[Rfam]
RNA sequence: AGCAUCCUUUUCUUGGGGUUGUGGUACUGUCCAAUUAGCAUGUAGUGAGGGCAGUACUGCUAACGCCUUAAAACAAAAAUCCCAACUGAUUACAUUAUACAGCAAAGAACCAGGGCCCUAAGGCUUUUCUUCACUUACUGAAAUG
Numbered sequence: 001a002g003c004a005u006c007c008u009u010u011u012c013u014u015g016g017g018g019u020u021g022u023g024g025u026a027c028u029g030u031c032c033a034a035u036u037a038g039c040a041u042g043u044a045g046u047g048a049g050g051g052c053a054g055u056a057c058u059g060c061u062a063a064c065g066c067c068u069u070a071a072a073a074c075a076a077a078a079a080u081c082c083c084a085a086c087u088g089a090u091u092a093c094a095u096u097a098u099a100c101a102g103c104a105a106a107g108a109a110c111c112a113g114g115g116c117c118c119u120a121a122g123g124c125u126u127u128u129c130u131u132c133a134c135u136u137a138c139u140g141a142a143a144u145g
Stems, first nucleotide, its partner, number of pairs: 006018004021060004026055007038046002105131003112127006
A member of the RNA family "U4atac minor spliceosomal RNA" from Molossus molossus, 145 nucleotides long. For this family Rfam cites "Evolutionary conservation of minor U12-type spliceosome between plants and humans" (Lorkovic et al., RNA, 2005). The base pairs follow the family's consensus structure, which is taken from published work. U4atac is an essential component of the minor U12-type spliceosome complex which is required for removal of the rarer class of eukaryotic introns (AT-AC, U12-type).